[Rfam]
RNA: RtT RNA
Organism: Budvicia aquatica
RNA sequence: AAAAAAGCUAACGCGUGUUGGAUGAGAACCUAAAGGUUCGAGCCGAGCGAAGCGAGACAACGUUGUCGCAGACAACGGCCCGCAGGGCGAGGCCAAAGGCCGAGUUAUCCUGCACGCCCCACCA
Numbered sequence: 001a002a003a004a005a006a007g008c009u010a011a012c013g014c015g016u017g018u019u020g021g022a023u024g025a026g027a028a029c030c031u032a033a034a035g036g037u038u039c040g041a042g043c044c045g046a047g048c049g050a051a052g053c054g055a056g057a058c059a060a061c062g063u064u065g066u067c068g069c070a071g072a073c074a075a076c077g078g079c080c081c082g083c084a085g086g087g088c089g090a091g092g093c094c095a096a097a098g099g100c101c102g103a104g105u106u107a108u109c110c111u112g113c114a115c116g117c118c119c120c121a122c123c124a
Stems, first nucleotide, its partner, number of pairs: 015115004020110002023107001037084001039082002044054002061077006